Rfam assigns this 106-nucleotide RNA from Rhizobacter sp. AJA081-3 to the family "Glycine riboswitch aptamer". NCBI's taxonomy places the organism under Bacteria, Betaproteobacteria, Burkholderiales, Sphaerotilaceae, Rhizobacter. The family is grouped with related families in Rfam's "Glycine riboswitch clan".
RNA sequence: CCAUCGCCGUCUGGAGAGUCUUCACGCCCGUGAAGCGCCGAAGGAGCAAGGCCCGGCCCGCAAGGCCCGGCUGAAUCUCUCAGGCACCAAGGACAGGGGGAGCGGC
Dot-bracket structure: ......((.((((......((((........)))).(((((..(((...((((...............))))....))))).)))........)))).))......